[Rfam]
RNA sequence: ACAACAGAUAGAGGCGCGGAUUUAAGAAGUAACGGACAUGAGGCUGCCAAAGCUGAUGAGGGUUUGUGAAAGGGAAAUUCGCCGAAGGAACAGCAUGGCAGGCUGCUUUCUGGUUGUGUCUGUGAAAAUCAGUUCAACUGUCGUCAUAGAAAUAUGAUGGAGCGCUAUCGGCAGU
Numbered sequence: 001a002c003a004a005c006a007g008a009u010a011g012a013g014g015c016g017c018g019g020a021u022u023u024a025a026g027a028a029g030u031a032a033c034g035g036a037c038a039u040g041a042g043g044c045u046g047c048c049a050a051a052g053c054u055g056a057u058g059a060g061g062g063u064u065u066g067u068g069a070a071a072g073g074g075a076a077a078u079u080c081g082c083c084g085a086a087g088g089a090a091c092a093g094c095a096u097g098g099c100a101g102g103c104u105g106c107u108u109u110c111u112g113g114u115u116g117u118g119u120c121u122g123u124g125a126a127a128a129u130c131a132g133u134u135c136a137a138c139u140g141u142c143g144u145c146a147u148a149g150a151a152a153u154a155u156g157a158u159g160g161a162g163c164g165c166u167a168u169c170g171g172c173a174g175u
Stems, first nucleotide, its partner, number of pairs: 007169005016082008032067006039060001086111005091105004112139005118133001120132003141160007